[Rfam]
RNA sequence: AAGUCGCACAUAUGUAAUUCGCUUUGGAUAAAAGCGUCUGCUAAAUGUAAAUUU
Numbered sequence: 001a002a003g004u005c006g007c008a009c010a011u012a013u014g015u016a017a018u019u020c021g022c023u024u025u026g027g028a029u030a031a032a033a034g035c036g037u038c039u040g041c042u043a044a045a046u047g048u049a050a051a052u053u054u
Stems, first nucleotide, its partner, number of pairs: 013043001014041003020036006

About this RNA
Shown here is a 54-nucleotide RNA sequence from Clupea harengus, a member of the family "UnaL2 LINE 3' element". A search with the family's covariance model found it, with a score of 59 bits. The family's consensus secondary structure is taken from published work. About the family: The eel long interspersed element (LINE) UnaL2 and its partner short interspersed element (SINE) share a conserved 3' tail containing a stem-loop that is critical for their retrotransposition.